[Rfam]
RNA sequence: CACGCGGUGUAAGUGGAGAGCAUUUAUAGCGGCGUGGCUUCAAUUUGAGGU
Numbered sequence: 001c002a003c004g005c006g007g008u009g010u011a012a013g014u015g016g017a018g019a020g021c022a023u024u025u026a027u028a029g030c031g032g033c034g035u036g037g038c039u040u041c042a043a044u045u046u047g048a049g050g051u
Stems, first nucleotide, its partner, number of pairs: 001036005007030002011025005